[Rfam]
RNA: UnaL2 LINE 3' element
RNA sequence: AACCUGUUGACAUGUAAGUCGCUCUGGAUAAGAGCGUCUGCUAAAUGACUAAAA
Numbered sequence: 001a002a003c004c005u006g007u008u009g010a011c012a013u014g015u016a017a018g019u020c021g022c023u024c025u026g027g028a029u030a031a032g033a034g035c036g037u038c039u040g041c042u043a044a045a046u047g048a049c050u051a052a053a054a
Base pairs, nucleotide, nucleotide: 013043014041015040016039020036021035022034023033024032025031
Dot-bracket structure: ............((((...((((((.....))))))..))).)...........